[Rfam]
Shown here is a 154-nucleotide RNA sequence from Dethiobacter alkaliphilus, a member of the family "glmS glucosamine-6-phosphate activated ribozyme aptamer". The match comes from Rfam's covariance-model search (120 bits). The family's RNA type in Rfam is riboswitch. The source organism's lineage runs through Bacteria, Bacillati, Dethiobacteria, Dethiobacterales and Dethiobacter alkaliphilus.
RNA sequence: AUUACAUUUAAAGCGCCUGAACACGUAUUUUAGUGUUGACGAGGAGGAGGUUUAUCGAAGUUUUCGGCGGAUGCCUCCCGGUCUGCCACGACCGUAAGGAAACCUACAAAACCGUUGAGUGAUCGGCGGGACAAAGGGGUUUCCGGUGGCUUAU
Numbered sequence: 001a002u003u004a005c006a007u008u009u010a011a012a013g014c015g016c017c018u019g020a021a022c023a024c025g026u027a028u029u030u031u032a033g034u035g036u037u038g039a040c041g042a043g044g045a046g047g048a049g050g051u052u053u054a055u056c057g058a059a060g061u062u063u064u065c066g067g068c069g070g071a072u073g074c075c076u077c078c079c080g081g082u083c084u085g086c087c088a089c090g091a092c093c094g095u096a097a098g099g100a101a102a103c104c105u106a107c108a109a110a111a112c113c114g115u116u117g118a119g120u121g122a123u124c125g126g127c128g129g130g131a132c133a134a135a136g137g138g139g140u141u142u143c144c145g146g147u148g149g150c151u152u153a154u
Stems, first nucleotide, its partner, number of pairs: 020037005046078005055067004079094005098144007112129007